[Rfam]
RNA sequence: GGUCUGUGAUGAAUAGUAAAAGGUCUGAUUAUCCUAAGACUUGUACUUCCAUGACCUUUUCUCACAGCAGUUUCUCACCAGUCACAGCGCAAGUAAUGGUGUGGCUGGCAGAGUGUUUGCCGACAGCUUGAGAUGUGUUCAGUCCAUGUUAACCUGAAGUACUGGAGACAUGACUGGAAUCAGCAUCCAGCAGUCCUACUUGAAGGAGUUUGAGGUCUUGGGUUGUUUUAACUGGGUGUGUGAUCUGACUUUUCUGCUGAGACC
Number, nucleotide and partner (000 for none) at each position: 001g264002g263003u262004c261005u000006g000007u000008g000009a000010u000011g000012a000013a000014u000015a000016g000017u000018a000019a000020a000021a000022g000023g000024u000025c000026u000027g000028a000029u000030u000031a000032u000033c000034c000035u000036a000037a246038g245039a244040c000041u242042u000043g000044u000045a000046c000047u000048u222049c221050c220051a219052u000053g217054a216055c000056c000057u000058u000059u000060u000061c208062u207063c206064a000065c122066a000067g120068c119069a118070g117071u000072u000073u000074c000075u000076c000077a000078c108079c107080a106081g105082u104083c103084a102085c101086a100087g000088c098089g000090c000091a000092a000093g000094u000095a000096a000097u000098g088099g000100u086101g085102u084103g083104g082105c081106u080107g079108g078109c000110a000111g000112a000113g000114u000115g000116u000117u070118u069119g068120c067121c000122g065123a000124c000125a000126g000127c000128u000129u000130g188131a000132g187133a186134u185135g184136u183137g000138u000139u000140c000141a000142g000143u000144c000145c172146a171147u170148g169149u168150u167151a000152a000153c165154c164155u000156g000157a000158a000159g000160u000161a000162c000163u000164g154165g153166a000167g150168a149169c148170a147171u146172g145173a000174c000175u000176g000177g000178a000179a000180u000181c000182a000183g136184c135185a134186u133187c132188c130189a000190g000191c000192a000193g000194u000195c000196c000197u000198a000199c000200u000201u000202g000203a000204a000205g000206g063207a062208g061209u000210u000211u000212g000213a000214g000215g000216u054217c053218u000219u051220g050221g049222g048223u000224u000225g000226u000227u000228u000229u000230a000231a000232c000233u000234g000235g000236g000237u000238g000239u000240g000241u000242g041243a000244u039245c038246u037247g000248a000249c000250u000251u000252u000253u000254c000255u000256g000257c000258u000259g000260a000261g004262a003263c002264c001
The family of this 264-nucleotide sequence from Chlamydotis macqueenii is "Small Cajal body specific RNA 6". Rfam classes the family as a small Cajal body RNA. For this family Rfam cites "RNomics: an experimental approach that identifies 201 candidates for novel, small, non-messenger RNAs in mouse" (Huttenhofer et al., EMBO J, 2001). Taxonomically the source falls in Chlamydotis (Eukaryota, Opisthokonta, Dipnotetrapodomorpha, Aves). Rfam's curators write: U88 is small Cajal body specific RNA (scaRNA). scaRNAs are a novel class of small nuclear RNAs which localise to the Cajal bodies. U88 is found associated with both fibrillarin and Gar1p and co-localises with coilin in Cajal bodies.